[Rfam]
RNA: Small nucleolar RNA SNORD115
Organism: Aotus nancymaae
RNA sequence: GGGUCAAUGAUGAGAACUCUUAUAUUUCUCUGAAGAGAGAUAUGACUUAAAUAUCAUGCUCAAUUAGGAUUCGCUGAGCCC
Numbered sequence: 001g002g003g004u005c006a007a008u009g010a011u012g013a014g015a016a017c018u019c020u021u022a023u024a025u026u027u028c029u030c031u032g033a034a035g036a037g038a039g040a041u042a043u044g045a046c047u048u049a050a051a052u053a054u055c056a057u058g059c060u061c062a063a064u065u066a067g068g069a070u071u072c073g074c075u076g077a078g079c080c081c
Stems, first nucleotide, its partner, number of pairs: 002081002005076002008073002